Rfam assigns this 91-nucleotide RNA from Nonomuraea polychroma to the family "Group II catalytic intron D1-D4-1". For this family Rfam cites "Control of branch-site choice by a group II intron" (Chu et al., EMBO J, 2001). Rfam describes the family as follows. Group II introns are found in rRNA, tRNA and mRNA of organelles in fungi, plants and protists, and also in mRNA in bacteria. It scores 61 bits against the family's covariance model.

RNA sequence: CGGUGGUCAUCGUGAGGUGGGCACUGACCGGGCAGAAGUCAGCAGAGGUCGUAGUACCGGUGAGGGGAACGGACAAUCAGCCGGGAAGGAC
Numbered sequence: 001c002g003g004u005g006g007u008c009a010u011c012g013u014g015a016g017g018u019g020g021g022c023a024c025u026g027a028c029c030g031g032g033c034a035g036a037a038g039u040c041a042g043c044a045g046a047g048g049u050c051g052u053a054g055u056a057c058c059g060g061u062g063a064g065g066g067g068a069a070c071g072g073a074c075a076a077u078c079a080g081c082c083g084g085g086a087a088g089g090a091c
Stems, first nucleotide, its partner, number of pairs: 001026002004023002007020005039046002048091003057084005